Description: This 157-nucleotide sequence from Eubacteriaceae bacterium Marseille-Q4139 belongs to the Rfam family "Clostridiales-1 RNA". Rfam 15.1 lists 1,172 matches to the family in 137 species. NCBI's taxonomy places the organism under Bacteria, Bacillota, Clostridia, Eubacteriales, Eubacteriaceae.
RNA sequence: UGAUACCAGGGUCAAAAAGUCGUAAAUCCGAUGCAAGCUUGCUUGCAAGAGGAUUUUUGACCUUAGGCCCCGCCAAAACAUGAAUAAGGAGCCAUUUUUCGCAGAAAAAUGUGCGGAUUAUGAAUGUUUUGAGGAUUGCGUGAGCAAUCCGGUAUCA
Numbered sequence: 001u002g003a004u005a006c007c008a009g010g011g012u013c014a015a016a017a018a019g020u021c022g023u024a025a026a027u028c029c030g031a032u033g034c035a036a037g038c039u040u041g042c043u044u045g046c047a048a049g050a051g052g053a054u055u056u057u058u059g060a061c062c063u064u065a066g067g068c069c070c071c072g073c074c075a076a077a078a079c080a081u082g083a084a085u086a087a088g089g090a091g092c093c094a095u096u097u098u099u100c101g102c103a104g105a106a107a108a109a110u111g112u113g114c115g116g117a118u119u120a121u122g123a124a125u126g127u128u129u130u131g132a133g134g135a136u137u138g139c140g141u142g143a144g145c146a147a148u149c150c151g152g153u154a155u156c157a
Stems, first nucleotide, its partner, number of pairs: 001157007010069004017063001019061004024056006032048001033046005074131008084121004091114002093111008133150007